U7 small nuclear RNA: a 61-nucleotide RNA sequence from Prolemur simus. The organism belongs to Prolemur, within Eukaryota.

[Rfam]
RNA sequence: GAGUGUUACAGCUCUUUUAGAAUUUGUUUAGCAGGUUUUCUGGUCCUCACUGGAAGCCCCC
Numbered sequence: 001g002a003g004u005g006u007u008a009c010a011g012c013u014c015u016u017u018u019a020g021a022a023u024u025u026g027u028u029u030a031g032c033a034g035g036u037u038u039u040c041u042g043g044u045c046c047u048c049a050c051u052g053g054a055a056g057c058c059c060c061c
Base pairs, nucleotide, nucleotide: 034058035057036056037055038054040053041052042051043050044049